This 118-nucleotide RNA from Caenorhabditis japonica belongs to the Rfam family "C. elegans snoRNA ceN33".
A reference for the family is Jia et al. (2007), "Systematic identification of non-coding RNA 2,2,7-trimethylguanosine cap structures in Caenorhabditis elegans", BMC Mol Biol.
The family's RNA type in Rfam is C/D-box small nucleolar RNA.
Taxonomically the source falls in Caenorhabditis (Eukaryota, Eumetazoa, Bilateria, Ecdysozoa).
The pairing is the family consensus, mapped onto this sequence.

[Rfam]
RNA sequence: CAAGCCUCUGGCGCUGCAUUUGCCAGAAACAAGGCGGGCGAUGAUUGAUAGAUUUACCACACGCAAUUUCGCCUGAUCGUCGAAAUGAAGGUUAAACUUCCUUGGACGUCUGAGCCAC
Numbered sequence: 001c002a003a004g005c006c007u008c009u010g011g012c013g014c015u016g017c018a019u020u021u022g023c024c025a026g027a028a029a030c031a032a033g034g035c036g037g038g039c040g041a042u043g044a045u046u047g048a049u050a051g052a053u054u055u056a057c058c059a060c061a062c063g064c065a066a067u068u069u070c071g072c073c074u075g076a077u078c079g080u081c082g083a084a085a086u087g088a089a090g091g092u093u094a095a096a097c098u099u100c101c102u103u104g105g106a107c108g109u110c111u112g113a114g115c116c117a118c
Stems, first nucleotide, its partner, number of pairs: 009117004